[Rfam]
RNA sequence: UUAAAACAUCAUGAGAGAUUAAAUUCUCACCAACCUGCUGACUCCAGCAAGGUGGUAAAAAGAUGUGGUUAACCAACAACUAAAGGAGUUAAA
Numbered sequence: 001u002u003a004a005a006a007c008a009u010c011a012u013g014a015g016a017g018a019u020u021a022a023a024u025u026c027u028c029a030c031c032a033a034c035c036u037g038c039u040g041a042c043u044c045c046a047g048c049a050a051g052g053u054g055g056u057a058a059a060a061a062g063a064u065g066u067g068g069u070u071a072a073c074c075a076a077c078a079a080c081u082a083a084a085g086g087a088g089u090u091a092a093a
Stems, first nucleotide, its partner, number of pairs: 006066005015028004029056003034052003037048003041089005068077003
Rfam assigns this 93-nucleotide RNA sequence to the family "SAM-I/IV (S-adenosyl methionine) riboswitch aptamer".
The literature on the family includes a 2008 paper in RNA by Weinberg et al., "The aptamer core of SAM-IV riboswitches mimics the ligand-binding site of SAM-I riboswitches".
Gene Ontology terms of the family: regulation of gene expression and S-adenosylmethionine metabolic process.
It is one of the family's seed sequences.
Clan: SAM clan.